[Rfam]
RNA sequence: CAUGAGCGGGCCUGAAUCCUUACUCAACCUUUCUUUCAAAGUAGGUGAGCAAAGUUUCAGGUGUGUUCAAUG
Numbered sequence: 001c002a003u004g005a006g007c008g009g010g011c012c013u014g015a016a017u018c019c020u021u022a023c024u025c026a027a028c029c030u031u032u033c034u035u036u037c038a039a040a041g042u043a044g045g046u047g048a049g050c051a052a053a054g055u056u057u058c059a060g061g062u063g064u065g066u067u068c069a070a071u072g
Stems, first nucleotide, its partner, number of pairs: 003069005010062006018054001020052002023049004028045003
Overview: Shown here is a 72-nucleotide RNA from Laodelphax striatellus, a member of the family "mir-87 microRNA precursor family". A search with the family's covariance model found it, with a score of 63 bits. A reference for the family is Ruby et al. (2007), "Evolution, biogenesis, expression, and target predictions of a substantially expanded set of Drosophila microRNAs", Genome Res. Pairs were carried over by alignment from the consensus structure, which was predicted with RNAalifold.